The record is a 67-nucleotide RNA from Trypanosoma theileri, which matches "Trypanosomatid snoRNA TB10Cs4H3" in Rfam. The family's consensus secondary structure was predicted with WAR. Rfam 15.1 lists 26 matches to the family in 13 species. The family's RNA type in Rfam is H/ACA-box small nucleolar RNA. A reference for the family is Liang et al. (2005), "A genome-wide analysis of C/D and H/ACA-like small nucleolar RNAs in Trypanosoma brucei reveals a trypanosome-specific pattern of rRNA modification", RNA. It scores 62 bits against the family's covariance model. Taxonomically the source falls in Trypanosoma (Eukaryota, Euglenozoa, Kinetoplastea, Trypanosomatidae).
RNA sequence: GACGUUCCUCCAACCGCCUUGCAUUGUGCUGUUGUGUGCACUGCGUGGUGAUAUCUGGGACGGAGAU
Numbered sequence: 001g002a003c004g005u006u007c008c009u010c011c012a013a014c015c016g017c018c019u020u021g022c023a024u025u026g027u028g029c030u031g032u033u034g035u036g037u038g039c040a041c042u043g044c045g046u047g048g049u050g051a052u053a054u055c056u057g058g059g060a061c062g063g064a065g066a067u
Stems, first nucleotide, its partner, number of pairs: 003062004007057001016049003020045004026041004